[Rfam]
RNA sequence: GAGUCUAGCAAAUGUGCAAGUGUGCAUGACACAUUAAACAUUAAUUUUUUUACGUCCCCGGACGUAAUACAUUUCUGUACGCAUAAUUAAUGUAAUAUGUUAAAUUUUGUAGAACCCGCGGAAAAGUUCUGCUUUUUUGCGGGCGCAUACAAUACCGGUGGGCAAUUAUGCCAUAUUGAGUAAGAGCAUAUUUGGUAGGACCCGAGAGGCUUUGAACUAAGCGUGACGAGAUUGAAGUCAGACGAAAGUCUGAUGGAAGAUCGAAUUGAUACUGACGUGCAAAUCGUUCAUUUCAGUCACGUUUAGGGGCGAAAGACUAAUCGAAAAGCCUAUUAGCUGGUU
Numbered sequence: 001g002a003g004u005c006u007a008g009c010a011a012a013u014g015u016g017c018a019a020g021u022g023u024g025c026a027u028g029a030c031a032c033a034u035u036a037a038a039c040a041u042u043a044a045u046u047u048u049u050u051u052a053c054g055u056c057c058c059c060g061g062a063c064g065u066a067a068u069a070c071a072u073u074u075c076u077g078u079a080c081g082c083a084u085a086a087u088u089a090a091u092g093u094a095a096u097a098u099g100u101u102a103a104a105u106u107u108u109g110u111a112g113a114a115c116c117c118g119c120g121g122a123a124a125a126g127u128u129c130u131g132c133u134u135u136u137u138u139g140c141g142g143g144c145g146c147a148u149a150c151a152a153u154a155c156c157g158g159u160g161g162g163c164a165a166u167u168a169u170g171c172c173a174u175a176u177u178g179a180g181u182a183a184g185a186g187c188a189u190a191u192u193u194g195g196u197a198g199g200a201c202c203c204g205a206g207a208g209g210c211u212u213u214g215a216a217c218u219a220a221g222c223g224u225g226a227c228g229a230g231a232u233u234g235a236a237g238u239c240a241g242a243c244g245a246a247a248g249u250c251u252g253a254u255g256g257a258a259g260a261u262c263g264a265a266u267u268g269a270u271a272c273u274g275a276c277g278u279g280c281a282a283a284u285c286g287u288u289c290a291u292u293u294c295a296g297u298c299a300c301g302u303u304u305a306g307g308g309g310c311g312a313a314a315g316a317c318u319a320a321u322c323g324a325a326a327a328g329c330c331u332a333u334u335a336g337c338u339g340g341u342u
Stems, first nucleotide, its partner, number of pairs: 005198003009194009020082003025077002028074002086093002107152005115143010154181002156178005165169001201340002204337001208330006217306011228294001230262004237254007267290003271287002274285002308318002
RNA: Eukaryotic large subunit ribosomal RNA, nucleotides 773 to 1114